[Rfam]
A member of the RNA family "Bacterial small signal recognition particle RNA" from Thiomicrorhabdus sediminis, 97 nucleotides long. NCBI's taxonomy places the organism under Bacteria, Pseudomonadati, Gammaproteobacteria, Thiotrichales, Thiomicrorhabdus. By type it is a non-coding RNA gene. It scores 70 bits against the family's covariance model. On this family, see Rosenblad et al., Nucleic Acids Res 2003: "SRPDB: Signal Recognition Particle Database". About the family: The signal recognition particle (SRP) is a universally conserved ribonucleoprotein involved in the co-translational targeting of proteins to membranes.
RNA sequence: UAUUCGUCCCCUCGCGACGCUAAGUUGGGAACUCCGCCAGGUCCGGAAGGAAGCAACGGUACCUUCUGAUGCGUGCGCCGAGGUAAGGCGGGUAGGG
Numbered sequence: 001u002a003u004u005c006g007u008c009c010c011c012u013c014g015c016g017a018c019g020c021u022a023a024g025u026u027g028g029g030a031a032c033u034c035c036g037c038c039a040g041g042u043c044c045g046g047a048a049g050g051a052a053g054c055a056a057c058g059g060u061a062c063c064u065u066c067u068g069a070u071g072c073g074u075g076c077g078c079c080g081a082g083g084u085a086a087g088g089c090g091g092g093u094a095g096g097g
Stems, first nucleotide, its partner, number of pairs: 004091005010083005015075001017074004023067002027063002034059003042051003